[Rfam]
RNA: Singlet oxygen resistance RNA X
RNA sequence: CCCCGUCGCAUGUGCGGGUAAUCACAUGCACCUCCCUGUUGGACUGGCCCCGGCACAACGCCGGGGUCUUUUU
Numbered sequence: 001c002c003c004c005g006u007c008g009c010a011u012g013u014g015c016g017g018g019u020a021a022u023c024a025c026a027u028g029c030a031c032c033u034c035c036c037u038g039u040u041g042g043a044c045u046g047g048c049c050c051c052g053g054c055a056c057a058a059c060g061c062c063g064g065g066g067u068c069u070u071u072u073u
Base pairs, nucleotide, nucleotide: 008029009028010027011026012025013024014023047067048066049065050064051063052062053061054060